RNA sequence: AGUAGAAAUAUGAAGACUGCAGCAGAAGCAUUCAGGUCACAGCCCCUGUCAGAUUCCUUGAAUCUGCAUAUCCUGCU
Number, nucleotide and partner (000 for none) at each position: 001a000002g000003u000004a000005g000006a000007a000008a000009u000010a000011u000012g000013a000014a000015g044016a000017c042018u041019g000020c000021a077022g076023c075024a074025g073026a000027a071028g040029c000030a000031u000032u000033c000034a000035g000036g000037u000038c000039a000040c028041a018042g017043c000044c015045c000046c000047u000048g000049u000050c066051a065052g064053a063054u062055u061056c060057c000058u000059u000060g056061a055062a054063u053064c052065u051066g050067c000068a000069u000070a000071u027072c000073c025074u024075g023076c022077u021
RNA: Mammalian CPEB3 ribozyme